This 123-nucleotide RNA from Eutrema salsugineum belongs to the Rfam family "MIR162_1 microRNA precursor family". A search with the family's covariance model found it, with a score of 100 bits. For this family Rfam cites "MicroRNAs in plants" (Reinhart et al., Genes Dev, 2002).
RNA sequence: GUGAAAGUCGCUGGAGGCAGCGGUUCAUCGAUCUCUUCCUGGGAUUUUUUGUUUUUUUGGUUGCUGGAAAGAAAUUCAAAAGCAUGAACAGAUCGAUAAACCUCUGCAUCCAGCGUUUGCCUC
Numbered sequence: 001g002u003g004a005a006a007g008u009c010g011c012u013g014g015a016g017g018c019a020g021c022g023g024u025u026c027a028u029c030g031a032u033c034u035c036u037u038c039c040u041g042g043g044a045u046u047u048u049u050u051g052u053u054u055u056u057u058u059g060g061u062u063g064c065u066g067g068a069a070a071g072a073a074a075u076u077c078a079a080a081a082g083c084a085u086g087a088a089c090a091g092a093u094c095g096a097u098a099a100a101c102c103u104c105u106g107c108a109u110c111c112a113g114c115g116u117u118u119g120c121c122u123c
Base pairs, nucleotide, nucleotide: 013111014110015109018106019105020104022102023101024100025099027097028096029095030094031093032092033091036088037087038086